[Rfam]
RNA sequence: CAAUGAAGGAAGCUUGGUAAUGUGCACAUAAAUUGAUUUGGCUCACUAAGCCGGCCCUCUCUGAUGUCAUUUGGUUUUGAUUUGGGGGCAUGGUUCUACAAUAAAACG
Numbered sequence: 001c002a003a004u005g006a007a008g009g010a011a012g013c014u015u016g017g018u019a020a021u022g023u024g025c026a027c028a029u030a031a032a033u034u035g036a037u038u039u040g041g042c043u044c045a046c047u048a049a050g051c052c053g054g055c056c057c058u059c060u061c062u063g064a065u066g067u068c069a070u071u072u073g074g075u076u077u078u079g080a081u082u083u084g085g086g087g088g089c090a091u092g093g094u095u096c097u098a099c100a101a102u103a104a105a106a107c108g
Stems, first nucleotide, its partner, number of pairs: 012025002015022001040091001043088002050081001052079001054075003